[Rfam]
Shown here is a 73-nucleotide RNA sequence from Drosophila melanogaster, a member of the family "tRNA". Pairs were carried over by alignment from the consensus structure, which is taken from published work. Gene Ontology term of the family: triplet codon-amino acid adaptor activity. Rfam classes the family as a transfer RNA.

RNA sequence: GUUUCCGUGGUGUAGUGGUUAUCACAUCCGCCUAACACGCGGAAGGCCCCCGGUUCAAUCCCGGGCGGAAACA
Numbered sequence: 001g002u003u004u005c006c007g008u009g010g011u012g013u014a015g016u017g018g019u020u021a022u023c024a025c026a027u028c029c030g031c032c033u034a035a036c037a038c039g040c041g042g043a044a045g046g047c048c049c050c051c052g053g054u055u056c057a058a059u060c061c062c063g064g065g066c067g068g069a070a071a072c073a
Stems, first nucleotide, its partner, number of pairs: 001072007010025003027043005049065005